[Rfam]
The record is a 207-nucleotide RNA from Aromatoleum aromaticum, which matches "permuted transfer-messenger RNA" in Rfam. Lineage of the source: Bacteria > Pseudomonadati > Betaproteobacteria > Aromatoleum > Aromatoleum aromaticum. By type it is a non-coding RNA gene.

RNA sequence: GGUUGUAAUUCCGGCAACCCGGAGACGUUCUGGACGCGGGUUCGAUUCCCGCCACCUCCACAGUGGGCAUUCUCAAGAGUGUUCAGUGUGGGGGUGCACCGGUUUCGACAGGGCGGGCAAUGGUGAGCAGGCAACCCGAGAGGCGACGGACGUAAUCCGCGCAAAUCCACAAACGCCAACGAUGAGCGUUUCGCUGUAGCCGCUUAA
Dot-bracket structure: (((((.........((.........(((.(((...(((((.......)))))(((((((..............................)))))))............))).)))........))......)))))((............)).......................................................